[Rfam]
RNA sequence: UCCACCGUGAGGUGGAAUCUGAAGGAAGCCAGCGGCAAAACUCUGGUCUGACGUACAGAAAUCACAUAUAAGGCUUACUUAAAUCGGGUGAGUUUGCUGAACAAAACAAAGCCCAAUGCUAUCCGAAGGUUUAAGAAGUAAAUGUGGCAGAUAGAUGGAGUGAAAGCGGUCGUU
Numbered sequence: 001u002c003c004a005c006c007g008u009g010a011g012g013u014g015g016a017a018u019c020u021g022a023a024g025g026a027a028g029c030c031a032g033c034g035g036c037a038a039a040a041c042u043c044u045g046g047u048c049u050g051a052c053g054u055a056c057a058g059a060a061a062u063c064a065c066a067u068a069u070a071a072g073g074c075u076u077a078c079u080u081a082a083a084u085c086g087g088g089u090g091a092g093u094u095u096g097c098u099g100a101a102c103a104a105a106a107c108a109a110a111g112c113c114c115a116a117u118g119c120u121a122u123c124c125g126a127a128g129g130u131u132u133a134a135g136a137a138g139u140a141a142a143u144g145u146g147g148c149a150g151a152u153a154g155a156u157g158g159a160g161u162g163a164a165a166g167c168g169g170u171c172g173u174u
Stems, first nucleotide, its partner, number of pairs: 001016006028174001030172001032170001035167002040161006046152005062147006073139003078135007086114004092107004

The family of this 174-nucleotide RNA from Clostridium sp. BL8 is "Group II catalytic intron D1-D4-3". Group II introns are found in rRNA, tRNA and mRNA of organelles in fungi, plants and protists, and also in mRNA in bacteria. Lineage of the source: Bacteria > Bacillati > Bacillota > Eubacteriales > Clostridium.